[Rfam]
Shown here is a 101-nucleotide RNA from Caenorhabditis briggsae, a member of the family "mir-36 microRNA precursor family". For this family Rfam cites "Patterns of flanking sequence conservation and a characteristic upstream motif for microRNA gene identification" (Ohler et al., RNA, 2004). The family has 46 seed sequences and 199 matches in Rfam 15.1. NCBI's taxonomy places the organism under Eukaryota, Eumetazoa, Nematoda, Rhabditida, Caenorhabditis.
RNA sequence: UUUCAUGGUCUGGGUCGGACCUUUGCCAAUUUUCUCCGCGGUGAUACUCCAAUGCGACGAUUAUCACCGGGUGAAAACUGGUAGAGGUCCGAGCCAGUCAG
Numbered sequence: 001u002u003u004c005a006u007g008g009u010c011u012g013g014g015u016c017g018g019a020c021c022u023u024u025g026c027c028a029a030u031u032u033u034c035u036c037c038g039c040g041g042u043g044a045u046a047c048u049c050c051a052a053u054g055c056g057a058c059g060a061u062u063a064u065c066a067c068c069g070g071g072u073g074a075a076a077a078c079u080g081g082u083a084g085a086g087g088u089c090c091g092a093g094c095c096a097g098u099c100a101g
Stems, first nucleotide, its partner, number of pairs: 016091007024083005030077005036071002039069001041067006